[Rfam]
RNA sequence: CAGUGGGUGAGAGUCCCACCCGGCAACUGGUCGUUCCAGCCGGAAGCAGUCGGGGCGGUGAGAGGAGGCAACAAGUUUCGCUGAAGCACUCCGAUGAAGAAGGGUCGCGAGAGGCGACUCAGCAAGCAUGCAGGCCGUAACGUGA
Numbered sequence: 001c002a003g004u005g006g007g008u009g010a011g012a013g014u015c016c017c018a019c020c021c022g023g024c025a026a027c028u029g030g031u032c033g034u035u036c037c038a039g040c041c042g043g044a045a046g047c048a049g050u051c052g053g054g055g056c057g058g059u060g061a062g063a064g065g066a067g068g069c070a071a072c073a074a075g076u077u078u079c080g081c082u083g084a085a086g087c088a089c090u091c092c093g094a095u096g097a098a099g100a101a102g103g104g105u106c107g108c109g110a111g112a113g114g115c116g117a118c119u120c121a122g123c124a125a126g127c128a129u130g131c132a133g134g135c136c137g138u139a140a141c142g143u144g145a
Stems, first nucleotide, its partner, number of pairs: 020043005051093005056083006067072001103119006122138002
RNA: Group II catalytic intron D1-D4-4